Overview
Rfam assigns this 77-nucleotide RNA sequence from aff. Roholtiella sp. LEGE 12411 to the family "CyVA-1 RNA". Rfam classes the family as a small RNA. A search with the family's covariance model found it, with a score of 80 bits. About the family: Cyanobacteria, Acidobacteria (1 example), Verrucomicrobia (1 example).
[Rfam]
RNA sequence: GCACUGGAUGGGUGUUAUGCCGCUGUGACCUAUUGUUGUGUAUCUAAGGAGAGCGAUGUCAGAUACACAGACAGUGU
Numbered sequence: 001g002c003a004c005u006g007g008a009u010g011g012g013u014g015u016u017a018u019g020c021c022g023c024u025g026u027g028a029c030c031u032a033u034u035g036u037u038g039u040g041u042a043u044c045u046a047a048g049g050a051g052a053g054c055g056a057u058g059u060c061a062g063a064u065a066c067a068c069a070g071a072c073a074g075u076g077u
Stems, first nucleotide, its partner, number of pairs: 001077006009032004037069008